RNA sequence: GGGUGUCGACGCCAGCAGCCACAGCGGUUGCAUGGGCUACGGCAGGUCUUCAGCGCAGGUCGGGCCGCCGCG
Dot-bracket structure: ....((((..((.......................))..))))..........(((.(((......))))))
Shown here is a 72-nucleotide RNA from Azohydromonas caseinilytica, a member of the family "nhaA-I RNA". It scores 40 bits against the family's covariance model. The base pairs follow the family's consensus structure, which is taken from published work. NCBI's taxonomy places the organism under Bacteria, Pseudomonadati, Pseudomonadota, Betaproteobacteria, Azohydromonas. It is annotated as a riboswitch.